[Rfam]
RNA sequence: GAUUGCAAGUAAACCCUCUCUGUGAUCGCGGCUG
Number, nucleotide and partner (000 for none) at each position: 001g027002a026003u025004u024005g023006c022007a021008a000009g000010u000011a000012a000013a000014c000015c000016c000017u000018c000019u000020c000021u007022g006023u005024g004025a003026u002027c001028g000029c000030g000031g000032c000033u000034g000

Notes:
This 34-nucleotide RNA belongs to the Rfam family "S4-Bacteroidia ribosomal protein leader". The family's RNA type in Rfam is cis-regulatory leader.